Background
A member of the RNA family "L31-Actinobacteria ribosomal protein leader", 42 nucleotides long.
RNA sequence: GCGGUACCGGUUCACGUCCGCUUCCCGGACGACCCGGCGACC
Numbered sequence: 001g002c003g004g005u006a007c008c009g010g011u012u013c014a015c016g017u018c019c020g021c022u023u024c025c026c027g028g029a030c031g032a033c034c035c036g037g038c039g040a041c042c
Base pairs, nucleotide, nucleotide: 003042004041005040007037008036009035010034015031016030017029018028019027020026
The base pairs follow the family's consensus structure, which is taken from published work.
It is annotated as a cis-regulatory leader.